[Rfam]
The family of this 91-nucleotide RNA from Aquirufa nivalisilvae is "TPP riboswitch aptamer (THI element)". It scores 68 bits against the family's covariance model.
RNA sequence: UAAUAAAGCACGGGGUGCCUGGACAAGGCUGAGAUGAUACCCGAGACCUGAUUUGGAUAAUGCCAACGUAGGGAUGCCUUUGAAGAUUUUU
Numbered sequence: 001u002a003a004u005a006a007a008g009c010a011c012g013g014g015g016u017g018c019c020u021g022g023a024c025a026a027g028g029c030u031g032a033g034a035u036g037a038u039a040c041c042c043g044a045g046a047c048c049u050g051a052u053u054u055g056g057a058u059a060a061u062g063c064c065a066a067c068g069u070a071g072g073g074a075u076g077c078c079u080u081u082g083a084a085g086a087u088u089u090u091u
Stems, first nucleotide, its partner, number of pairs: 006079001008077003011043004016037001017029004047072004053066004